[Rfam]
The record is a 284-nucleotide sequence from Sciurus vulgaris, which matches "Mason-Pfizer monkey virus packaging signal" in Rfam. Rfam's curators write: This family represents a group of sequences that are related to the Mason-Pfizer monkey virus (MPMV) packaging signal. The packaging signal is located in the 5' UTR and is required for specific RNA encapsidation. Gene Ontology term of the family: viral genome packaging. The base pairs follow the family's consensus structure, which was predicted with PFOLD. Taxonomically the source falls in Sciurus (Eukaryota, Deuterostomia, Vertebrata, Glires).

RNA sequence: UGGCGCCAAACGGUGUGGCUUUGGAUACGGGGGAAUUCGCGAGGGAAUAGGCGUCUAAGUGUUCAGCCGAAGAAAAAAAAAGUGAAAGUCAGUUCAACAAAGAUCGCCGUGGGAGCCUGCCGUGCCGCACUUAAAGGUACAGUAGCACCUAACUAUGGGACAAGAAUUAAGUAAGCAUAAAGUUUUUGUUAAGCAAUUAAAAGAAGCUUUAAAGACACGGGGAGUAAAGGUUAAGAGUAAUGAUCUUUUUAAGUUUUUUGACCUUAUUAAGGACACCUGUCCGU
Numbered sequence: 001u002g003g004c005g006c007c008a009a010a011c012g013g014u015g016u017g018g019c020u021u022u023g024g025a026u027a028c029g030g031g032g033g034a035a036u037u038c039g040c041g042a043g044g045g046a047a048u049a050g051g052c053g054u055c056u057a058a059g060u061g062u063u064c065a066g067c068c069g070a071a072g073a074a075a076a077a078a079a080a081a082g083u084g085a086a087a088g089u090c091a092g093u094u095c096a097a098c099a100a101a102g103a104u105c106g107c108c109g110u111g112g113g114a115g116c117c118u119g120c121c122g123u124g125c126c127g128c129a130c131u132u133a134a135a136g137g138u139a140c141a142g143u144a145g146c147a148c149c150u151a152a153c154u155a156u157g158g159g160a161c162a163a164g165a166a167u168u169a170a171g172u173a174a175g176c177a178u179a180a181a182g183u184u185u186u187u188g189u190u191a192a193g194c195a196a197u198u199a200a201a202a203g204a205a206g207c208u209u210u211a212a213a214g215a216c217a218c219g220g221g222g223a224g225u226a227a228a229g230g231u232u233a234a235g236a237g238u239a240a241u242g243a244u245c246u247u248u249u250u251a252a253g254u255u256u257u258u259u260g261a262c263c264u265u266a267u268u269a270a271g272g273a274c275a276c277c278u279g280u281c282c283g284u
Base pairs, nucleotide, nucleotide: 006033007032013028014027015026038050089137090136093134094133105127108124109123110122111121112120143163145161148159149158150157151156168211169210170209171207172206218260219259220258221257222256223255224254225253228246229245230244231243232242233241269284271282272281273280274279